[Rfam]
RNA sequence: UAAAUCAUUAGAGGUUGCAACCAACAUCAGUAAUUAGUGGAGUUCCUACCUGAACUUUGAAGUUAAUGAAAGGGGCGGUUGCCGAAGCACCAUGUGAGGUAGCACUUGGCGCGCUGGGACUUAGCUUAAGAGGCUAUGGACUGUCGCGGCGGAUAAGUCGGCUGCGGGGCGCUAACGACAAA
Numbered sequence: 001u002a003a004a005u006c007a008u009u010a011g012a013g014g015u016u017g018c019a020a021c022c023a024a025c026a027u028c029a030g031u032a033a034u035u036a037g038u039g040g041a042g043u044u045c046c047u048a049c050c051u052g053a054a055c056u057u058u059g060a061a062g063u064u065a066a067u068g069a070a071a072g073g074g075g076c077g078g079u080u081g082c083c084g085a086a087g088c089a090c091c092a093u094g095u096g097a098g099g100u101a102g103c104a105c106u107u108g109g110c111g112c113g114c115u116g117g118g119a120c121u122u123a124g125c126u127u128a129a130g131a132g133g134c135u136a137u138g139g140a141c142u143g144u145c146g147c148g149g150c151g152g153a154u155a156a157g158u159c160g161g162c163u164g165c166g167g168g169g170c171g172c173u174a175a176c177g178a179c180a181a182a
Stems, first nucleotide, its partner, number of pairs: 006177001008175004017082006025074001033067006086115003090109003094105003116142002120138001122136005144167007